Rfam assigns this 136-nucleotide RNA from Tatumella ptyseos to the family "Yersinia sRNA 155(RyfD)". Taxonomically the source falls in Tatumella ptyseos (Bacteria, Pseudomonadati, Gammaproteobacteria, Enterobacterales). Rfam's curators write: The sRNA was identified by and is confirmed to have a stable secondary structure by using genome-wide structure probing at different temperatures. It scores 83 bits against the family's covariance model.
RNA sequence: CUGGACGAUCCUGUAUGUGUAAUUUUUCUCUGUUUUCCGGGUGAUAAAACUUGAAUAUUUGAGGGAUUGACCUCAUUUAAUCUCCUGUAGCAUUUUGACCUUUAACAGGAGGAAUUAUGCGUCUGGAUCGUCUAAC
Dot-bracket structure: .((((((((((...(((((.(((((.(((.........))).)).....(((((....))))).((.((....))))...((((((((................)))))))).))).)))))..))))))))))..